[Rfam]
RNA sequence: UAAGAAUUUGAAGGCUUCAACUUGCAUAUUUUGAGGAUUUGAAGACUUCAACUUGCAUACUUGACUGGAUUUAAAGACUUCAAGC
Dot-bracket structure: .(((..((((((..(.(((...((((...((.(((..........))).))..))))....)))..)..))))))..))).....
Numbered sequence: 001u002a003a004g005a006a007u008u009u010g011a012a013g014g015c016u017u018c019a020a021c022u023u024g025c026a027u028a029u030u031u032u033g034a035g036g037a038u039u040u041g042a043a044g045a046c047u048u049c050a051a052c053u054u055g056c057a058u059a060c061u062u063g064a065c066u067g068g069a070u071u072u073a074a075a076g077a078c079u080u081c082a083a084g085c
Stems, first nucleotide, its partner, number of pairs: 002080003007075006015067001017064003023057004030051002033048003
The family of this 85-nucleotide RNA from Solanum commersonii is "MIR8024 microRNA precursor family". Its family is annotated with RISC complex and miRNA-mediated post-transcriptional gene silencing in the Gene Ontology. The base pairs follow the family's consensus structure, which was predicted with RNAalifold. Lineage of the source: Eukaryota > Spermatophyta > Magnoliopsida > asterids > Solanum.